[Rfam]
RNA sequence: GACAACCACUAGGGGCGCAUAUGCUGAGAUAAGGAAAUUCCUUUGUCCCUCUGAACCUGAUCUGGGUAAAGCCAGCGUAGGAAAGUGGAGCGUGCGUUUU
Numbered sequence: 001g002a003c004a005a006c007c008a009c010u011a012g013g014g015g016c017g018c019a020u021a022u023g024c025u026g027a028g029a030u031a032a033g034g035a036a037a038u039u040c041c042u043u044u045g046u047c048c049c050u051c052u053g054a055a056c057c058u059g060a061u062c063u064g065g066g067u068a069a070a071g072c073c074a075g076c077g078u079a080g081g082a083a084a085g086u087g088g089a090g091c092g093u094g095c096g097u098u099u100u
Stems, first nucleotide, its partner, number of pairs: 006088005011050004017024002031043005056081004062075004
RNA: TPP riboswitch aptamer (THI element)
Organism: Sinobaca qinghaiensis